[Rfam]
RNA: Small nucleolar RNA snoR31/Z110/Z27
Organism: Kingdonia uniflora
Nucleotides: 096
Stems, first nucleotide, its partner, number of pairs: 002095006044050001
Number, partner (000 for none) and nucleotide at each position: 001000g002095u003094u004093a005092u006091c007090a008000a009000g010000u011000g012000a013000u014000g015000a016000g017000a018000u019000u020000u021000g022000a023000a024000a025000u026000u027000u028000a029000u030000c031000u032000u033000a034000g035000g036000a037000c038000a039000c040000c041000u042000u043000u044050u045000a046000a047000c048000a049000c050044a051000g052000u053000c054000u055000a056000u057000g058000g059000u060000u061000g062000u063000g064000g065000a066000u067000g068000a069000g070000a071000a072000u073000a074000a075000u076000a077000u078000u079000u080000c081000u082000a083000u084000c085000u086000c087000u088000g089000a090007u091006g092005a093004u094003g095002a096000a